[Rfam]
RNA sequence: GCACGGCAGGCUGUCCUCAGCCUGCCAGGUUCCCAAC
Numbered sequence: 001g002c003a004c005g006g007c008a009g010g011c012u013g014u015c016c017u018c019a020g021c022c023u024g025c026c027a028g029g030u031u032c033c034c035a036a037c
Base pairs, nucleotide, nucleotide: 005026006025007024008023009022010021011020012019013018
The family of this 37-nucleotide sequence is "CRISPR RNA direct repeat element". Pairs were carried over by alignment from the consensus structure, which was predicted with WAR.